[Rfam]
Source information
This 177-nucleotide RNA from Methylococcus sp. EFPC2 belongs to the Rfam family "Proteobacterial sRNA psRNA2". A reference for the family is Gvakharia et al. (2010), "Computational prediction and transcriptional analysis of sRNAs in Nitrosomonas europaea", FEMS Microbiol Lett.
RNA sequence: GGGUUACUCCUGCGCUUACGCGCCGUUUCGAUGAAGAUUCGCACCUCUAUCAAAACGGGUAACCCCACCUCUCGGCAAGGAGUACUGUCAGAUCUAGUCUGAACUUCUACACAUUAGUCAGGGUGGGCAAGCGUCUUUCUGAUUGCCCACCCUACCACGCUUUCAGGAACACCGUUG
Dot-bracket structure: (((((((.((.((((....)))).((((.((((.((........)).)))).)))))))))))))........((...((.((...(((((((...))))).)).((...(..........................)..))..))))..)).........................